[Rfam]
RNA sequence: GUGUUGGCGUAGUCGAGUGGUUACUUCGUAAUUGUAAUGGCACAUAUUGGUAAUUGAAUCUUAGCGGGUUCGAUUCCCGUAGAAACCACUGACGCUUUCCAGCAUUUAU
Numbered sequence: 001g002u003g004u005u006g007g008c009g010u011a012g013u014c015g016a017g018u019g020g021u022u023a024c025u026u027c028g029u030a031a032u033u034g035u036a037a038u039g040g041c042a043c044a045u046a047u048u049g050g051u052a053a054u055u056g057a058a059u060c061u062u063a064g065c066g067g068g069u070u071c072g073a074u075u076c077c078c079g080u081a082g083a084a085a086c087c088a089c090u091g092a093c094g095c096u097u098u099c100c101a102g103c104a105u106u107u108a109u
Base pairs, nucleotide, nucleotide: 002104003103004102005101006100007099012093013092014091015090017089018088019087020086026073027072028071
This 109-nucleotide RNA sequence from Mytilus coruscus belongs to the Rfam family "Vault RNA".
It is annotated as a non-coding RNA gene.
The family has 73 seed sequences and 2,873 matches in Rfam 15.1.
Taxonomically the source falls in Mytilus (Eukaryota, Metazoa, Mollusca, Mytilinae).